[Rfam]
RNA: Molybdenum/Tungsten riboswitch aptamer (Moco RNA motif)
RNA sequence: CAACUGAAUUGCUCCGAGUGGAAUCGCCUGCAGGCCUUGGCUAUGGCGGUUCCGCCUGGGCCAGACCGGAAACGGUCUGACCUUCCGUAUUUGAAAAGGGGCUGCUCCAGGACAGAU
Dot-bracket structure: ...(.(....(((((..(((((((((((....(((....)))..)))))))))))..(((.(((((((....))))))).)))((.......))...))))).....).).......